[Rfam]
RNA sequence: CAGUAGGCGGAAGGAUCGAGAGAUGAACGCCGAGGAGCGAGUGAAGGUCCGGUAAAUAGGAGUAACAAGUGUUGCGGAAGGAUAAUAAACCACAAAGGCUGAAUGGGCCUUAUCCUCGCAAUGGCAGAAGAGGAGGUAGUGCUUACGUUUGUAAGGGCGCCGUGAACGCAUAUGCGGCUUAUCUGUAGUUCCCAUGUGUGCGGGGCGAUUAGGAGCAGCCUGCGGCUAGUACGCACACCUACA
Numbered sequence: 001c002a003g004u005a006g007g008c009g010g011a012a013g014g015a016u017c018g019a020g021a022g023a024u025g026a027a028c029g030c031c032g033a034g035g036a037g038c039g040a041g042u043g044a045a046g047g048u049c050c051g052g053u054a055a056a057u058a059g060g061a062g063u064a065a066c067a068a069g070u071g072u073u074g075c076g077g078a079a080g081g082a083u084a085a086u087a088a089a090c091c092a093c094a095a096a097g098g099c100u101g102a103a104u105g106g107g108c109c110u111u112a113u114c115c116u117c118g119c120a121a122u123g124g125c126a127g128a129a130g131a132g133g134a135g136g137u138a139g140u141g142c143u144u145a146c147g148u149u150u151g152u153a154a155g156g157g158c159g160c161c162g163u164g165a166a167c168g169c170a171u172a173u174g175c176g177g178c179u180u181a182u183c184u185g186u187a188g189u190u191c192c193c194a195u196g197u198g199u200g201c202g203g204g205g206c207g208a209u210u211a212g213g214a215g216c217a218g219c220c221u222g223c224g225g226c227u228a229g230u231a232c233g234c235a236c237a238c239c240u241a242c243a
Stems, first nucleotide, its partner, number of pairs: 006031004015024003091164003095111006113134005135161003139158002142155005167176003196238007214227003218223001

A member of the RNA family "Clostridiales-3 RNA" from Lachnospiraceae bacterium XBB1006, 243 nucleotides long. It scores 197 bits against the family's covariance model. NCBI's taxonomy places the organism under Bacteria, Bacillota, Clostridia, Lachnospirales, Lachnospiraceae.